Shown here is a 336-nucleotide part of an RNA from Rubellimicrobium thermophilum, a member of the family "Bacterial large subunit ribosomal RNA".
Pairs were carried over by alignment from the consensus structure, which is taken from published work.

[Rfam]
RNA sequence: UGAGAGAACGACGUCGAAGGAACUCGGCAAAAUGCCUCCGUAAGUUCGCGAGAAGGAGGCCCCGUUCCCGGGCAACCGGGGGCGGGGGGCACAAAAGAGGGGGUGGCGACUGUUUACUAAAAACACAGGGCUGUGCGAAGCCGCAAGGCGCCGUAUACAGUCUGACGCCUGCCCGGUGCCGGAAGGUUAAAGGGAGGGGUGCAAGCCCCGAACUGAAGCCCCGGUAAACGGCGGCCGUAACUAUAACGGUCCUAAGGUAGCGAAAUUCCUUGUCGGGUAAGUUCCGACCUGCACGAAUGGCGUAACGACUUCCCCGCUGUCUCCGACGUCGACUCA
Numbered sequence: 001u002g003a004g005a006g007a008a009c010g011a012c013g014u015c016g017a018a019g020g021a022a023c024u025c026g027g028c029a030a031a032a033u034g035c036c037u038c039c040g041u042a043a044g045u046u047c048g049c050g051a052g053a054a055g056g057a058g059g060c061c062c063c064g065u066u067c068c069c070g071g072g073c074a075a076c077c078g079g080g081g082g083c084g085g086g087g088g089g090c091a092c093a094a095a096a097g098a099g100g101g102g103g104u105g106g107c108g109a110c111u112g113u114u115u116a117c118u119a120a121a122a123a124c125a126c127a128g129g130g131c132u133g134u135g136c137g138a139a140g141c142c143g144c145a146a147g148g149c150g151c152c153g154u155a156u157a158c159a160g161u162c163u164g165a166c167g168c169c170u171g172c173c174c175g176g177u178g179c180c181g182g183a184a185g186g187u188u189a190a191a192g193g194g195a196g197g198g199g200u201g202c203a204a205g206c207c208c209c210g211a212a213c214u215g216a217a218g219c220c221c222c223g224g225u226a227a228a229c230g231g232c233g234g235c236c237g238u239a240a241c242u243a244u245a246a247c248g249g250u251c252c253u254a255a256g257g258u259a260g261c262g263a264a265a266u267u268c269c270u271u272g273u274c275g276g277g278u279a280a281g282u283u284c285c286g287a288c289c290u291g292c293a294c295g296a297a298u299g300g301c302g303u304a305a306c307g308a309c310u311u312c313c314c315c316g317c318u319g320u321c322u323c324c325g326a327c328g329u330c331g332a333c334u335c336a
Stems, first nucleotide, its partner, number of pairs: 001336004009331008018322003035059005044049001060087012088092001100315004105310002107307002111125003128163008136153001140149003166302004171232003176229002178225005185220003191214002196209005233251006252256001262289001272288006

It scores 2599 bits against the family's covariance model.